[Rfam]
RNA sequence: UAGAAAAUUGUAUAAGUAACUCGUAUAAUUUUGGUAAUAUGGACCAAUAGUUUCUACCAGGCUACCGUAAAUAGUCUGACUACGGGUGUUUAACUAAGUAUA
Numbered sequence: 001u002a003g004a005a006a007a008u009u010g011u012a013u014a015a016g017u018a019a020c021u022c023g024u025a026u027a028a029u030u031u032u033g034g035u036a037a038u039a040u041g042g043a044c045c046a047a048u049a050g051u052u053u054c055u056a057c058c059a060g061g062c063u064a065c066c067g068u069a070a071a072u073a074g075u076c077u078g079a080c081u082a083c084g085g086g087u088g089u090u091u092a093a094c095u096a097a098g099u100a101u102a
Stems, first nucleotide, its partner, number of pairs: 019087007029049001031047005058078007
The record is a 102-nucleotide RNA sequence from Alkalithermobacter paradoxus, which matches "Purine riboswitch aptamer" in Rfam. It scores 91 bits against the family's covariance model.